[Rfam]
RNA sequence: GCAGGUUCUCAGGGCGGGGUGCGAUUCCCCACCGGCGGUGAUGGCAUCGGAGAUGUCGAGCCCGCGAGCGCCCGGCAUGGCCGGGGACAGCAGAUUCCGGUUCGAUCCCGGAGCCGACGGUCAUAGUCCGGAUGAGAGAGAACGCGU
Numbered sequence: 001g002c003a004g005g006u007u008c009u010c011a012g013g014g015c016g017g018g019g020u021g022c023g024a025u026u027c028c029c030c031a032c033c034g035g036c037g038g039u040g041a042u043g044g045c046a047u048c049g050g051a052g053a054u055g056u057c058g059a060g061c062c063c064g065c066g067a068g069c070g071c072c073c074g075g076c077a078u079g080g081c082c083g084g085g086g087a088c089a090g091c092a093g094a095u096u097c098c099g100g101u102u103c104g105a106u107c108c109c110g111g112a113g114c115c116g117a118c119g120g121u122c123a124u125a126g127u128c129c130g131g132a133u134g135a136g137a138g139a140g141a142a143c144g145c146g147u
Stems, first nucleotide, its partner, number of pairs: 005143006017029003031127002033116002035065004060114002068091002096112005118130003

Shown here is a 147-nucleotide RNA sequence from Gordonia jinhuaensis, a member of the family "FMN riboswitch aptamer (RFN element)". Pairs were carried over by alignment from the consensus structure, which is taken from published work. Rfam describes the family as follows. The RFN element is a highly conserved domain that is found frequently in the 5'-untranslated regions of prokaryotic mRNAs that encode for flavin mononucleotide (FMN) biosynthesis and transport proteins. This element is a metabolite-dependent riboswitch that directly binds FMN in the absence of proteins.